[Rfam]
A member of the RNA family "mir-339 microRNA precursor family" from Sus scrofa, 80 nucleotides long. Its family is annotated with RISC complex and miRNA-mediated post-transcriptional gene silencing in the Gene Ontology. It is one of the family's seed sequences.

RNA sequence: GCAGCCGCCGUCCCUGUCCUCCAGGAGCUCACUUACCUUGGGCCGUGAGCUCCUCGAGGCCAGAGCCCGUGUCUGCCUCU
Numbered sequence: 001g002c003a004g005c006c007g008c009c010g011u012c013c014c015u016g017u018c019c020u021c022c023a024g025g026a027g028c029u030c031a032c033u034u035a036c037c038u039u040g041g042g043c044c045g046u047g048a049g050c051u052c053c054u055c056g057a058g059g060c061c062a063g064a065g066c067c068c069g070u071g072u073c074u075g076c077c078u079c080u
Base pairs, nucleotide, nucleotide: 001076002075003074004073006071007070008069012065014063015062016061018059020057021056023054024053025052027050028049029048030047031046032045033042034041